[Rfam]
RNA: mir-551 microRNA precursor family
RNA sequence: UGACUCUGGAAAUCCAGAGUGGGUGAGGCCUGUGUGACUGUUGCUAGGGGACCCACUCUUGGUUUCCAUGAUUG
Dot-bracket structure: .((.(.(.((((((.((...((((....(((..............)))..))))...)).)))))).).).)).